[Rfam]
RNA sequence: AUUGUUCAGGUGAUGAAAAAUGGAAUAAUCUUAGGACACCUUCCUACACAGCGAAAAUCUUGCUGUGGAUGAGAACAACUUUCCAUUCUGAUGAUGAU
Numbered sequence: 001a002u003u004g005u006u007c008a009g010g011u012g013a014u015g016a017a018a019a020a021u022g023g024a025a026u027a028a029u030c031u032u033a034g035g036a037c038a039c040c041u042u043c044c045u046a047c048a049c050a051g052c053g054a055a056a057a058u059c060u061u062g063c064u065g066u067g068g069a070u071g072a073g074a075a076c077a078a079c080u081u082u083c084c085a086u087u088c089u090g091a092u093g094a095u096g097a098u
Stems, first nucleotide, its partner, number of pairs: 001098005007093002047053001

Small nucleolar RNA snoR31/Z110/Z27: a 98-nucleotide RNA from Malus domestica. Rfam classes the family as a C/D-box small nucleolar RNA. It scores 52 bits against the family's covariance model. Rfam's curators write: This family contains several related snoRNAs including R31, Z27 and Z110. Lineage of the source: Eukaryota > Streptophytina > Mesangiospermae > Pentapetalae > Malus. A reference for the family is Chen et al. (2003), "The high diversity of snoRNAs in plants: identification and comparative study of 120 snoRNA genes from Oryza sativa", Nucleic Acids Res.